[Rfam]
RNA sequence: CGAGUAAGCCAGACAAUCGCUGCUGUGUUUCACACAGGAGAGGAAAGUCCGAGCUCCGUAGGGCAGGGUGCUGGGUAACUCCCAGUCAGGGUGACUUGAAGGAAAGUGCAACAGAGAUAUACCGCCGCAGAUUUAAAUAUUAGUUUAAUUACUAGUAUUUGUAUGCGGCAAGGAUGGAAAGGCGAGGUAAGAGCUCACCAGCGCAUUGGCGACUUUGCGGCUAUGUAAACCCCACUUGGAGCAAGAUCGAAUAGGGAAGUAGGAAAUCACUUAUGUGUUUUCCAGGGGCUGCCCGCCCCGCUUCCGGGUAGAAUCGCUUGAACUUACUGGCAACAGUAGGUCUAGAUAGAUGAUUGUCAAAAACAGAACUCGGCUUACAGACUUACUCACAUA
Numbered sequence: 001c002g003a004g005u006a007a008g009c010c011a012g013a014c015a016a017u018c019g020c021u022g023c024u025g026u027g028u029u030u031c032a033c034a035c036a037g038g039a040g041a042g043g044a045a046a047g048u049c050c051g052a053g054c055u056c057c058g059u060a061g062g063g064c065a066g067g068g069u070g071c072u073g074g075g076u077a078a079c080u081c082c083c084a085g086u087c088a089g090g091g092u093g094a095c096u097u098g099a100a101g102g103a104a105a106g107u108g109c110a111a112c113a114g115a116g117a118u119a120u121a122c123c124g125c126c127g128c129a130g131a132u133u134u135a136a137a138u139a140u141u142a143g144u145u146u147a148a149u150u151a152c153u154a155g156u157a158u159u160u161g162u163a164u165g166c167g168g169c170a171a172g173g174a175u176g177g178a179a180a181g182g183c184g185a186g187g188u189a190a191g192a193g194c195u196c197a198c199c200a201g202c203g204c205a206u207u208g209g210c211g212a213c214u215u216u217g218c219g220g221c222u223a224u225g226u227a228a229a230c231c232c233c234a235c236u237u238g239g240a241g242c243a244a245g246a247u248c249g250a251a252u253a254g255g256g257a258a259g260u261a262g263g264a265a266a267u268c269a270c271u272u273a274u275g276u277g278u279u280u281u282c283c284a285g286g287g288g289c290u291g292c293c294c295g296c297c298c299c300g301c302u303u304c305c306g307g308g309u310a311g312a313a314u315c316g317c318u319u320g321a322a323c324u325u326a327c328u329g330g331c332a333a334c335a336g337u338a339g340g341u342c343u344a345g346a347u348a349g350a351u352g353a354u355u356g357u358c359a360a361a362a363a364c365a366g367a368a369c370u371c372g373g374c375u376u377a378c379a380g381a382c383u384u385a386c387u388c389a390c391a392u393a
Base pairs, nucleotide, nucleotide: 002388003387004386005385006384007383008382010380012358013357014356015355016354017353018352020040021039023037024036025035026034027033028032045376046375047374049373050372051371052370053369054241055240056239057238061294062293063292064291066237067236068235069234070233071085072084073083074082075081086100087098088097089096090095101232102231106230107229108226109225110224122173123172124169125168126167127166128165129164131162132161181199182198184196185195186194201221202219203218204217205216208213245315246314247313248311255305256304257303258302259301260300285299286298287297288296289295322341323340324339325338326337327336328335329334
RNA: Bacterial RNase P class A